[Rfam]
RNA sequence: AGCGGUCUUCAGGGCGGGGUGUGAUUCCCCACCGGCGGUAAGCGGCGCGAGCCGCGAGCCCGCGAGCGCUUCCAGUCUCCCGUAGCCUGGAAGGUCAGCAGACUCAGUGCGAUGCUGAGGCCGACGGUGUUGGAAGGUUUUCCUUCCUCAGUCCGGAUGGAAGAAGAUUCGU
Numbered sequence: 001a002g003c004g005g006u007c008u009u010c011a012g013g014g015c016g017g018g019g020u021g022u023g024a025u026u027c028c029c030c031a032c033c034g035g036c037g038g039u040a041a042g043c044g045g046c047g048c049g050a051g052c053c054g055c056g057a058g059c060c061c062g063c064g065a066g067c068g069c070u071u072c073c074a075g076u077c078u079c080c081c082g083u084a085g086c087c088u089g090g091a092a093g094g095u096c097a098g099c100a101g102a103c104u105c106a107g108u109g110c111g112a113u114g115c116u117g118a119g120g121c122c123g124a125c126g127g128u129g130u131u132g133g134a135a136g137g138u139u140u141u142c143c144u145u146c147c148u149c150a151g152u153c154c155g156g157a158u159g160g161a162a163g164a165a166g167a168u169u170c171g172u
Stems, first nucleotide, its partner, number of pairs: 004169007017029003033123002035063004058121002066099002103119005125155003
FMN riboswitch aptamer (RFN element): a 172-nucleotide sequence from Ramlibacter tataouinensis. The source organism's lineage runs through Bacteria, Pseudomonadati, Pseudomonadota, Burkholderiales and Ramlibacter.